[Rfam]
The family of this 82-nucleotide RNA sequence is "Small nucleolar RNA SNORD115". The family has 32 seed sequences and 3,387 matches in Rfam 15.1. Its family is annotated with RNA processing and nucleolus in the Gene Ontology. The literature on the family includes a 2000 paper in Proc Natl Acad Sci U S A by Cavaille et al., "Identification of brain-specific and imprinted small nucleolar RNA genes exhibiting an unusual genomic organization". Pairs were carried over by alignment from the consensus structure, which was predicted with PFOLD.

RNA sequence: GGGUCAAUGAUGAGAACCUUAUAUUGUCCUGAAGAGAGGUGAUGACUUAAAAAUCAUGCUCAAUAGGAUUACGCUGAGUCCC
Numbered sequence: 001g002g003g004u005c006a007a008u009g010a011u012g013a014g015a016a017c018c019u020u021a022u023a024u025u026g027u028c029c030u031g032a033a034g035a036g037a038g039g040u041g042a043u044g045a046c047u048u049a050a051a052a053a054u055c056a057u058g059c060u061c062a063a064u065a066g067g068a069u070u071a072c073g074c075u076g077a078g079u080c081c082c
Stems, first nucleotide, its partner, number of pairs: 001082003005076002008073002